[Rfam]
RNA sequence: ACUGGCUGUGAUGACAAACUUGCCCUCUCUGAGAGAGCAGCUCUAUUAUGAGACUCAAGUAAACGCUCCUGAGCCAAG
Numbered sequence: 001a002c003u004g005g006c007u008g009u010g011a012u013g014a015c016a017a018a019c020u021u022g023c024c025c026u027c028u029c030u031g032a033g034a035g036a037g038c039a040g041c042u043c044u045a046u047u048a049u050g051a052g053a054c055u056c057a058a059g060u061a062a063a064c065g066c067u068c069c070u071g072a073g074c075c076a077a078g
Stems, first nucleotide, its partner, number of pairs: 002078001003076004
RNA: Small nucleolar RNA SNORD103/SNORD85